[Rfam]
RNA sequence: ACCUUAUCAAGAGCGGCGGAGGGACAGGCCCUGUGAAGCCCAGCAACCACCCAUUAGGGAAAAGGUGCUAAAUCCUACAAGACUUUAUAGUUUUGAGAGAUGAGGU
Numbered sequence: 001a002c003c004u005u006a007u008c009a010a011g012a013g014c015g016g017c018g019g020a021g022g023g024a025c026a027g028g029c030c031c032u033g034u035g036a037a038g039c040c041c042a043g044c045a046a047c048c049a050c051c052c053a054u055u056a057g058g059g060a061a062a063a064g065g066u067g068c069u070a071a072a073u074c075c076u077a078c079a080a081g082a083c084u085u086u087a088u089a090g091u092u093u094u095g096a097g098a099g100a101u102g103a104g105g106u
Stems, first nucleotide, its partner, number of pairs: 001106008013041001015040003021031003026076003042069004047065002051059002073098001078095006